[Rfam]
RNA sequence: ACUGUCCUUGUCUCGGGGUGGCUCGGGAGGUUCAAUGAACGUCUAGUGAGAACGUCCCUGCUAACACCAGACCAACACUUUCGCGCCACCGGGGCGGAAACGUCCGGGAUUCGGUGCAAUUUUUGGAAAA
Numbered sequence: 001a002c003u004g005u006c007c008u009u010g011u012c013u014c015g016g017g018g019u020g021g022c023u024c025g026g027g028a029g030g031u032u033c034a035a036u037g038a039a040c041g042u043c044u045a046g047u048g049a050g051a052a053c054g055u056c057c058c059u060g061c062u063a064a065c066a067c068c069a070g071a072c073c074a075a076c077a078c079u080u081u082c083g084c085g086c087c088a089c090c091g092g093g094g095c096g097g098a099a100a101c102g103u104c105c106g107g108g109a110u111u112c113g114g115u116g117c118a119a120u121u122u123u124u125g126g127a128a129a130a
Stems, first nucleotide, its partner, number of pairs: 006018004021061002027056002030053004039047002083117005089108002092105004
U4atac minor spliceosomal RNA: a 130-nucleotide sequence from Nothobranchius furzeri. Rfam's curators write: U4atac is an essential component of the minor U12-type spliceosome complex which is required for removal of the rarer class of eukaryotic introns (AT-AC, U12-type). The source organism's lineage runs through Eukaryota, Eumetazoa, Percomorphaceae, Ovalentaria and Nothobranchius.